This 514-nucleotide sequence from Virgisporangium ochraceum belongs to the Rfam family "Saccharopolyspora sRNA 350". Lineage of the source: Bacteria > Bacillati > Actinomycetota > Actinomycetes > Virgisporangium. The family has 2 seed sequences and 1,170 matches in Rfam 15.1.
[Rfam]
RNA sequence: CGGGCGGUGAAGUCCCAGGUGGACUGUCCGUCGGCGAGCACGCCGUCACCGAAGAACUCGCCGUCGGCGAGCACGCCGAGCACGGUCUGGUCGCCGUACGCGCCCGCGCCGAGCUUCUGCACCUUGCCGUGCGCGAUGAGGACGACCCGGUCGGCCGCCUGGCCGGACCGCGCGAUCACCUCGCCGGCGGCGAACUCCUGCUGCGUGAACCGGUCGGCCAGCGACCGCAGCGCCGACACGUCCCCGAAGCCGCGCAGCAACGGAAGCUCGCACAGCUCCUCGGGGACGACCCGCACCCGCGCGCCCGCGUUGGUGAACGUGAUCCGCCCGUCUCCCACGGUGAACGCCAGCCGCCGGUUGACCCGGUACGCGCCACCGCUGACCUGCACCCACGGCAACAGCUUCAGUAACCAGCGGGAGGUGAUCUCCUGCAUCUGCGGCGCGGUCUUGGUGGUGGUCGCGAGGUUUCUCGCCGCGGCGGUGCUGAGGCUGAGGCGGUCCUCGAGCCGGUCCG
Number, nucleotide and partner (000 for none) at each position: 001c000002g000003g000004g000005c000006g390007g389008u388009g387010a000011a385012g384013u000014c000015c381016c000017a000018g328019g327020u000021g325022g324023a000024c000025u322026g000027u000028c319029c000030g000031u316032c315033g000034g000035c313036g000037a311038g310039c309040a000041c307042g306043c000044c000045g305046u000047c303048a000049c301050c299051g298052a000053a000054g233055a000056a000057c230058u229059c000060g228061c227062c000063g225064u224065c111066g110067g109068c108069g000070a000071g000072c000073a000074c000075g103076c000077c102078g101079a000080g099081c000082a097083c096084g095085g094086u093087c000088u000089g000090g000091u000092c000093g086094c085095c084096g083097u082098a000099c080100g000101c078102g077103c075104c000105c000106g000107c000108g068109c067110c066111g065112a000113g000114c000115u000116u000117c223118u221119g000120c000121a000122c217123c216124u000125u000126g000127c212128c000129g210130u209131g206132c205133g204134c203135g202136a000137u000138g199139a000140g197141g000142a000143c000144g195145a000146c000147c000148c000149g000150g191151u000152c000153g000154g188155c187156c186157g185158c000159c183160u178161g177162g000163c000164c174165g173166g171167a000168c000169c000170g000171c166172g000173c165174g164175a000176u000177c161178a160179c000180c000181u000182c000183g159184c000185c157186g156187g155188c154189g000190g000191c150192g000193a000194a000195c144196u000197c140198c000199u138200g000201c000202u135203g134204c133205g132206u131207g000208a000209a130210c129211c000212g127213g000214u000215c000216g123217g122218c000219c000220a000221g118222c000223g117224a064225c063226c000227g061228c060229a058230g057231c000232g000233c054234c000235g294236a000237c293238a000239c000240g290241u289242c288243c000244c000245c285246g000247a000248a000249g000250c282251c000252g280253c000254g278255c000256a277257g276258c275259a000260a000261c270262g269263g000264a000265a000266g000267c000268u000269c262270g261271c000272a000273c000274a000275g258276c257277u256278c254279c000280u252281c000282g250283g000284g000285g245286a000287c000288g242289a241290c240291c000292c000293g237294c235295a000296c000297c000298c051299g050300c000301g049302c000303g047304c000305c045306c042307g041308c000309g039310u038311u037312g000313g035314u000315g032316a031317a000318c000319g028320u000321g000322a025323u000324c022325c021326g000327c019328c018329c342330g341331u340332c339333u000334c000335c000336c000337a000338c000339g332340g331341u330342g329343a000344a000345c000346g000347c000348c000349a000350g000351c000352c378353g377354c000355c000356g374357g373358u000359u000360g000361a000362c370363c000364c000365g000366g000367u000368a000369c000370g362371c000372g000373c357374c356375a000376c000377c353378g352379c000380u000381g015382a000383c000384c012385u011386g000387c009388a008389c007390c006391c431392a430393c000394g428395g427396c000397a425398a000399c423400a422401g000402c000403u418404u417405c416406a000407g415408u000409a000410a000411c000412c000413a000414g000415c407416g405417g404418g403419a000420g000421g000422u400423g399424a000425u397426c000427u395428c394429c000430u392431g391432c000433a000434u000435c000436u000437g476438c475439g474440g473441c000442g471443c000444g469445g468446u000447c465448u464449u463450g000451g461452u460453g000454g000455u000456g000457g000458u000459c000460g452461c451462g000463a449464g448465g447466u000467u000468u445469c444470u000471c442472g000473c440474c439475g438476c437477g513478g512479c000480g508481g507482u506483g000484c504485u000486g502487a000488g500489g499490c498491u497492g000493a000494g000495g000496c000497g491498g490499u489500c488501c000502u486503c000504g484505a000506g482507c481508c480509g000510g000511u000512c478513c477514g000